[Rfam]
RNA: mir-399 microRNA precursor family
RNA sequence: GGAUGCAUGGCUGGGCAAUUACUCCUUUGGCAGUUGGCCAGUCCCUCCACUGCAUGCAGUUUGGUGAAUUUAUAAUGCUCACUGCCAAAGGAGAUUUGCCCCGUCAUUCAUCG
Numbered sequence: 001g002g003a004u005g006c007a008u009g010g011c012u013g014g015g016c017a018a019u020u021a022c023u024c025c026u027u028u029g030g031c032a033g034u035u036g037g038c039c040a041g042u043c044c045c046u047c048c049a050c051u052g053c054a055u056g057c058a059g060u061u062u063g064g065u066g067a068a069u070u071u072a073u074a075a076u077g078c079u080c081a082c083u084g085c086c087a088a089a090g091g092a093g094a095u096u097u098g099c100c101c102c103g104u105c106a107u108u109c110a111u112c113g
Base pairs, nucleotide, nucleotide: 005109007107008106009105011103013101014100015099016098017097018096022093023092024091025090028087029086030085031084032083033082034081
Dot-bracket structure: ....(.(((.(.((((((...((((..(((((((..............................................)))))))..))))..)))))).).))).)....